[Rfam]
RNA sequence: UGGUAGAUGCACCCUGAUGAUUCACCCCUGGCAAUUCGUCAGGGGUUUUUUGU
Number, nucleotide and partner (000 for none) at each position: 001u000002g013003g012004u011005a000006g000007a000008u000009g000010c000011a004012c003013c002014c000015u000016g000017a000018u000019g000020a000021u000022u000023c000024a000025c045026c044027c043028c042029u041030g040031g039032c038033a000034a000035u000036u000037c000038g032039u031040c030041a029042g028043g027044g026045g025046u000047u000048u000049u000050u000051u000052g000053u000